[Rfam]
RNA sequence: CCGAGUCCCGACGCACUCCCCCCGGCGCCGGGACUCUCCCCGAGCCGGGCUUCGGCGCCUCCCCCCGAGCGCUGAAGCCCGGCUCCGCC
Numbered sequence: 001c002c003g004a005g006u007c008c009c010g011a012c013g014c015a016c017u018c019c020c021c022c023c024g025g026c027g028c029c030g031g032g033a034c035u036c037u038c039c040c041c042g043a044g045c046c047g048g049g050c051u052u053c054g055g056c057g058c059c060u061c062c063c064c065c066c067g068a069g070c071g072c073u074g075a076a077g078c079c080c081g082g083c084u085c086c087g088c089c
Stems, first nucleotide, its partner, number of pairs: 005034006012027003042085010053074006060068002
Streptomyces RNA 3202: an 89-nucleotide sequence from Streptomyces sp. F-3. The family's RNA type in Rfam is small RNA. Rfam's curators write: Identified by deep sequencing of transcriptome at the end of exponential growth phase. Appears smaller on northern blot than sequencing transcript. This indicates processing step. The literature on the family includes a 2011 paper in RNA Biol by Vockenhuber et al., "Deep sequencing-based identification of small non-coding RNAs in Streptomyces coelicolor".